RNA sequence: UAUGAAUACAACUUAAAAACUCGUAUAUUUGUCGGAGAUAUGGUCCGAGAGUUUCUACCUACUAACCAUGAAUUAGUAGACUACGAGGUAUGAAUAAUAUAUA
Numbered sequence: 001u002a003u004g005a006a007u008a009c010a011a012c013u014u015a016a017a018a019a020c021u022c023g024u025a026u027a028u029u030u031g032u033c034g035g036a037g038a039u040a041u042g043g044u045c046c047g048a049g050a051g052u053u054u055c056u057a058c059c060u061a062c063u064a065a066c067c068a069u070g071a072a073u074u075a076g077u078a079g080a081c082u083a084c085g086a087g088g089u090a091u092g093a094a095u096a097a098u099a100u101a102u103a
Base pairs, nucleotide, nucleotide: 018089020087021086022085023084024083025082029050030049032048033047034046035045036044059079060078061077062076063075064074065073
Background: The record is a 103-nucleotide sequence from Clostridium collagenovorans, which matches "Purine riboswitch aptamer" in Rfam. A search with the family's covariance model found it, with a score of 78 bits. For this family Rfam cites "Riboswitches Control Fundamental Biochemical Pathways in Bacillus subtilis and Other Bacteria" (Mandal et al., Cell, 2003).